RNA: Plastid-rps12 3UTR RNA
Organism: Apostasia shenzhenica
RNA sequence: GGUUUCUAUUGGCGCAAAUCCAAUCACUCCAUUUGAGGUGAGAAGCAAUUCUCCAUUGGUAGUAACUAGUUAUCCAUUAAGCGGAAGAAAUAGUUU
Numbered sequence: 001g002g003u004u005u006c007u008a009u010u011g012g013c014g015c016a017a018a019u020c021c022a023a024u025c026a027c028u029c030c031a032u033u034u035g036a037g038g039u040g041a042g043a044a045g046c047a048a049u050u051c052u053c054c055a056u057u058g059g060u061a062g063u064a065a066c067u068a069g070u071u072a073u074c075c076a077u078u079a080a081g082c083g084g085a086a087g088a089a090a091u092a093g094u095u096u
Stems, first nucleotide, its partner, number of pairs: 009023004052085003055077002058074006